[Rfam]
RNA sequence: UGGGACACCCGUCAAAGAAGUAGUUCCCCAUCCAAGAGCUACUUUACCAUAUUCCGAAUUC
Number, nucleotide and partner (000 for none) at each position: 001u000002g000003g000004g000005a000006c000007a000008c000009c000010c000011g000012u000013c000014a000015a000016a000017g045018a044019a043020g042021u041022a040023g039024u038025u037026c036027c000028c000029c000030a000031u000032c000033c000034a000035a000036g026037a025038g024039c023040u022041a021042c020043u019044u018045u017046a000047c000048c000049a000050u000051a000052u000053u000054c000055c000056g000057a000058a000059u000060u000061c000
Source information: This 61-nucleotide sequence from Anisodus acutangulus belongs to the Rfam family "Plastid-psbN 5UTR RNA". Rfam describes the family as follows. Plastid psbN is a non-coding RNA (ncRNA) recognised in plastids. Rfam 15.1 lists 2,345 matches to the family in 397 species. For this family Rfam cites "Retrograde signaling in plants: A critical review focusing on the GUN pathway and beyond" (Richter et al., Plant Commun, 2023). It is annotated as a cis-regulatory element.